[Rfam]
RNA sequence: GGCAGUAACAGCGAGGGGAGGUGAGAAUCCUCCCCGCCGGAAGGGCAAGGGUUUCCCGGCAAUGGUCGUCAGCCGGGAGUGAGCCGGUCCUAAGGCGGGGCCUAACUGGUACCCGCCGAAAGGGAAAGGGGUUAAUAUUCCCCUGCCCCGGGGGUAGGUGCGGCAACGCAAGGCCUGCCUCCGACGGAUCGGGGUAGGGGGAGCGGGCCACCGCCCGCCCAAACCCUGAAGCCCCUGGAGAACCGUAACGGUGAGAAGGGGGCGAAGGGGUGACGGGCCCUCCGUUAGGAGGGUUCCCCUGAUCCCUGGUCCCCAUGAAAAGGGGGCAGGCAGCGAUCCCCCGGGACCGUACCGAGAACCGACACCGGUGCCCCUGGGUGAGAAGCCCAAGGCGUCU
Numbered sequence: 001g002g003c004a005g006u007a008a009c010a011g012c013g014a015g016g017g018g019a020g021g022u023g024a025g026a027a028u029c030c031u032c033c034c035c036g037c038c039g040g041a042a043g044g045g046c047a048a049g050g051g052u053u054u055c056c057c058g059g060c061a062a063u064g065g066u067c068g069u070c071a072g073c074c075g076g077g078a079g080u081g082a083g084c085c086g087g088u089c090c091u092a093a094g095g096c097g098g099g100g101c102c103u104a105a106c107u108g109g110u111a112c113c114c115g116c117c118g119a120a121a122g123g124g125a126a127a128g129g130g131g132u133u134a135a136u137a138u139u140c141c142c143c144u145g146c147c148c149c150g151g152g153g154g155u156a157g158g159u160g161c162g163g164c165a166a167c168g169c170a171a172g173g174c175c176u177g178c179c180u181c182c183g184a185c186g187g188a189u190c191g192g193g194g195u196a197g198g199g200g201g202a203g204c205g206g207g208c209c210a211c212c213g214c215c216c217g218c219c220c221a222a223a224c225c226c227u228g229a230a231g232c233c234c235c236u237g238g239a240g241a242a243c244c245g246u247a248a249c250g251g252u253g254a255g256a257a258g259g260g261g262g263c264g265a266a267g268g269g270g271u272g273a274c275g276g277g278c279c280c281u282c283c284g285u286u287a288g289g290a291g292g293g294u295u296c297c298c299c300u301g302a303u304c305c306c307u308g309g310u311c312c313c314c315a316u317g318a319a320a321a322g323g324g325g326g327c328a329g330g331c332a333g334c335g336a337u338c339c340c341c342c343g344g345g346a347c348c349g350u351a352c353c354g355a356g357a358a359c360c361g362a363c364a365c366c367g368g369u370g371c372c373c374c375u376g377g378g379u380g381a382g383a384a385g386c387c388c389a390a391g392g393c394g395u396c397u
Stems, first nucleotide, its partner, number of pairs: 016034006035394004043373004049353002054078006063071002085349003089123002094117006100110003127144005147345008180324003186312009197300005203218005223271004232262005242252003283288001359368002375389004
Overview: The record is a 397-nucleotide part of an RNA from Sulfolobales archaeon SCGC AB-777_K20, which matches "Archaeal large subunit ribosomal RNA" in Rfam. The match comes from Rfam's covariance-model search (2769 bits). Lineage of the source: Archaea > Thermoproteati > Thermoproteota > Thermoprotei > Sulfolobales.